[Rfam]
RNA sequence: AACAGAGUAGAGAAUAAAGCGUUAAGUGUCGGUAGGAUGGGAUGUUGCCACCGAACGAAAAAUGAGAAAUCAUUUGCGGUUUUGUUCUCGCAUUCGCUGCA
Numbered sequence: 001a002a003c004a005g006a007g008u009a010g011a012g013a014a015u016a017a018a019g020c021g022u023u024a025a026g027u028g029u030c031g032g033u034a035g036g037a038u039g040g041g042a043u044g045u046u047g048c049c050a051c052c053g054a055a056c057g058a059a060a061a062a063u064g065a066g067a068a069a070u071c072a073u074u075u076g077c078g079g080u081u082u083u084g085u086u087c088u089c090g091c092a093u094u095c096g097c098u099g100c101a
Stems, first nucleotide, its partner, number of pairs: 003099003010089010020078003026056002029054005035049002040095005060075004
Dot-bracket structure: ..(((....(((((((((((((...((.(((((.((...[[[[[...)))))))))...((((........))))))).)))))))))).]]]]].)))..
This 101-nucleotide RNA sequence from Jeotgalibaca dankookensis belongs to the Rfam family "THF (Tetrahydrofolate) riboswitch aptamer". Rfam's curators write: Tetrahydrofolate (THF) riboswitch was first reported for Ames et al. as an RNA motif in 5' untranslated (5'-UTR)regions of folate transport and biosynthesis genes in Firmicutes genomes. The match comes from Rfam's covariance-model search (83 bits). On this family, see Ames et al., Chem Biol 2010: "A eubacterial riboswitch class that senses the coenzyme tetrahydrofolate".